[Rfam]
RNA sequence: CUCUGUCGGAAGACAGGGCGGAAGGAG
Numbered sequence: 001c002u003c004u005g006u007c008g009g010a011a012g013a014c015a016g017g018g019c020g021g022a023a024g025g026a027g
Stems, first nucleotide, its partner, number of pairs: 001018007

Rfam assigns this 27-nucleotide RNA sequence from Kribbella flavida to the family "L31-Firmicutes ribosomal protein leader".
NCBI's taxonomy places the organism under Bacteria, Actinomycetota, Actinomycetes, Kribbellaceae, Kribbella flavida.
A search with the family's covariance model found it, with a score of 38 bits.